[Rfam]
RNA sequence: ACUUCCUGAAGCCGGAACGAAAAGUGUUUUGGAAUUGAGAUUCUGAAGGGCUUUUGGCUUACGGAUGUGAUGUUGUGUUGUUGUGUUUGCAAUUUGGUCUGCAUUUCAGACCCCGGUAGCGACGCUACCCCUUUUUCACUUCCUGUACAUUUACCCUGUCUGUCCAUAGUGAUUAAUGUAGCACCGCAAAUUGCGGUGCUUUUUUUU
Numbered sequence: 001a002c003u004u005c006c007u008g009a010a011g012c013c014g015g016a017a018c019g020a021a022a023a024g025u026g027u028u029u030u031g032g033a034a035u036u037g038a039g040a041u042u043c044u045g046a047a048g049g050g051c052u053u054u055u056g057g058c059u060u061a062c063g064g065a066u067g068u069g070a071u072g073u074u075g076u077g078u079u080g081u082u083g084u085g086u087u088u089g090c091a092a093u094u095u096g097g098u099c100u101g102c103a104u105u106u107c108a109g110a111c112c113c114c115g116g117u118a119g120c121g122a123c124g125c126u127a128c129c130c131c132u133u134u135u136u137c138a139c140u141u142c143c144u145g146u147a148c149a150u151u152u153a154c155c156c157u158g159u160c161u162g163u164c165c166a167u168a169g170u171g172a173u174u175a176a177u178g179u180a181g182c183a184c185c186g187c188a189a190a191u192u193g194c195g196g197u198g199c200u201u202u203u204u205u206u207u
Stems, first nucleotide, its partner, number of pairs: 010059004016055002022053004027048009096112006115129006147179005180200008
A member of the RNA family "GcvB RNA" from Kosakonia cowanii, 207 nucleotides long.
A search with the family's covariance model found it, with a score of 164 bits.
The organism belongs to Kosakonia cowanii, within Bacteria.
The family's RNA type in Rfam is non-coding RNA gene.
Rfam describes the family as follows. The gcvB gene encodes a small untranslated RNA involved in expression of the dipeptide and oligopeptide transport systems in Escherichia coli. Included several unknown homologues in alignment (Bateman A pers obs). It base-pairs with SorC. This interaction triggers the degradation of GcvB by RNase E, alleviating the GcvB-mediated mRNA repression of other amino acid-related transport and metabolic genes.